This 31-nucleotide sequence from Prolemur simus belongs to the Rfam family "Iron response element II". A reference for the family is Koeller et al. (1989), "A cytosolic protein binds to structural elements within the iron regulatory region of the transferrin receptor mRNA", Proc Natl Acad Sci U S A. NCBI's taxonomy places the organism under Eukaryota, Gnathostomata, Lemuriformes, Lemuridae, Prolemur. Rfam classes the family as a cis-regulatory element. IRE, TFRC, SLC40A1, SDHB, SLC11A2, CDC42BPA, ACO2, ALAS2_H.SAPIENS, CDC14A, EPAS1, ALAS2, qoxD, Hao1, NDUFS1, transferrin, Aconitate. Gene Ontology term of the family: response to iron ion.
[Rfam]
RNA sequence: UCCAUUUCUGGGACAGAGCUCCCAAAAUCUU
Numbered sequence: 001u002c003c004a005u006u007u008c009u010g011g012g013a014c015a016g017a018g019c020u021c022c023c024a025a026a027a028u029c030u031u
Base pairs, nucleotide, nucleotide: 004028005027006026007025009024010023011022012021013020014018